[Rfam]
RNA: terC RNA
Organism: Rhodopseudomonas palustris
RNA sequence: GACGCGGGCCGGGCCCCUCUGGCGACCCUGAUGGUCGUGAUGUCGGACCGCAUCG
Numbered sequence: 001g002a003c004g005c006g007g008g009c010c011g012g013g014c015c016c017c018u019c020u021g022g023c024g025a026c027c028c029u030g031a032u033g034g035u036c037g038u039g040a041u042g043u044c045g046g047a048c049c050g051c052a053u054c055g
Stems, first nucleotide, its partner, number of pairs: 006049002009046004022038006